[Rfam]
RNA sequence: AUAACAAAUAGAGGUGCACUUAAAUCAGUAUUCGAAAAUAAGGGGUUAAGCGACUCAAGUUUCGAAGAAAGGAAACGGUGCCGAAGUUUUUAAGGGAGGCUGAACCUUAAAGACUGGGGAUAAGGUGAAUAAUCUUAUCACUGUCAUGGGAUUCCAUGGGGGGCUAUUAUUGCU
Numbered sequence: 001a002u003a004a005c006a007a008a009u010a011g012a013g014g015u016g017c018a019c020u021u022a023a024a025u026c027a028g029u030a031u032u033c034g035a036a037a038a039u040a041a042g043g044g045g046u047u048a049a050g051c052g053a054c055u056c057a058a059g060u061u062u063c064g065a066a067g068a069a070a071g072g073a074a075a076c077g078g079u080g081c082c083g084a085a086g087u088u089u090u091u092a093a094g095g096g097a098g099g100c101u102g103a104a105c106c107u108u109a110a111a112g113a114c115u116g117g118g119g120a121u122a123a124g125g126u127g128a129a130u131a132a133u134c135u136u137a138u139c140a141c142u143g144u145c146a147u148g149g150g151a152u153u154c155c156a157u158g159g160g161g162g163g164c165u166a167u168u169a170u171u172g173c174u
Stems, first nucleotide, its partner, number of pairs: 007168005016081005021075001031066007085115011116142002119139008144159006
Shown here is a 174-nucleotide sequence from Isachenkonia alkalipeptolytica, a member of the family "Lysine riboswitch aptamer". Pairs were carried over by alignment from the consensus structure, which is taken from published work. Rfam links the family to the GO term lysine biosynthetic process.